[Rfam]
The record is a 151-nucleotide RNA sequence from Triticum aestivum, which matches "U4 spliceosomal RNA" in Rfam. For this family Rfam cites "The uRNA database" (Zwieb, Nucleic Acids Res, 1997). U4 small nuclear RNA (U4 snRNA) is a component of the major U2-dependent spliceosome. The match comes from Rfam's covariance-model search (97 bits). Pairs were carried over by alignment from the consensus structure, which is taken from published work. The organism belongs to Triticum, within Eukaryota.
RNA sequence: AUCUUUGCGCUUGGGGCAAUGACGCAGUUAGUGAGGUUAUACCGAGGUGUGUCAAUUACUGGUUGAAAACUAUUUCCAAACCCCCUCUUUGGCCCUUUGGGGCCAUUGAGAAUUUCUGAAAGGGCUCCUUUCCUUUGGGGAGGGUAAAGUC
Numbered sequence: 001a002u003c004u005u006u007g008c009g010c011u012u013g014g015g016g017c018a019a020u021g022a023c024g025c026a027g028u029u030a031g032u033g034a035g036g037u038u039a040u041a042c043c044g045a046g047g048u049g050u051g052u053c054a055a056u057u058a059c060u061g062g063u064u065g066a067a068a069a070c071u072a073u074u075u076c077c078a079a080a081c082c083c084c085c086u087c088u089u090u091g092g093c094c095c096u097u098u099g100g101g102g103c104c105a106u107u108g109a110g111a112a113u114u115u116c117u118g119a120a121a122g123g124g125c126u127c128c129u130u131u132c133c134u135u136u137g138g139g140g141a142g143g144g145u146a147a148a149g150u151c
Stems, first nucleotide, its partner, number of pairs: 021053005027048003035043003085110003090105006123151004